Shown here is a 72-nucleotide RNA from Synaphobranchus kaupii, a member of the family "Small nucleolar RNA SNORD63". The family's RNA type in Rfam is C/D-box small nucleolar RNA. Rfam 15.1 lists 795 matches to the family in 549 species. The organism belongs to Synaphobranchus, within Eukaryota. snoRNA U63 is found in both humans and mice. The base pairs follow the family's consensus structure, which was predicted with PFOLD.

RNA sequence: GUGCCGUGAUGUACUUACAAACACAUCAUUCCAACUGAAAAUGUGGGGAAAGAUCUUGUCUAACUGAGCACA
Numbered sequence: 001g002u003g004c005c006g007u008g009a010u011g012u013a014c015u016u017a018c019a020a021a022c023a024c025a026u027c028a029u030u031c032c033a034a035c036u037g038a039a040a041a042u043g044u045g046g047g048g049a050a051a052g053a054u055c056u057u058g059u060c061u062a063a064c065u066g067a068g069c070a071c072a
Base pairs, nucleotide, nucleotide: 001071002070003069004068